The family of this 71-nucleotide RNA from Vibrio maritimus is "tRNA".
The match comes from Rfam's covariance-model search (52 bits).
It is annotated as a transfer RNA.
RNA sequence: AGGGCUAUCGCCAAGCGGUAAGGCAGCGGCUUUUGAUGCCGCCAUUCCCUGGUUCGAAUCAGGUAGCCCUG
Number, nucleotide and partner (000 for none) at each position: 001a070002g069003g068004g067005c066006u065007a064008u000009c000010g024011c023012c022013a000014a000015g000016c000017g000018g000019u000020a000021a000022g012023g011024c010025a000026g042027c041028g040029g039030c038031u000032u000033u000034u000035g000036a000037u000038g030039c029040c028041g027042c026043c000044a000045u000046u000047c000048c063049c062050u061051g060052g059053u000054u000055c000056g000057a000058a000059u052060c051061a050062g049063g048064u007065a006066g005067c004068c003069c002070u001071g000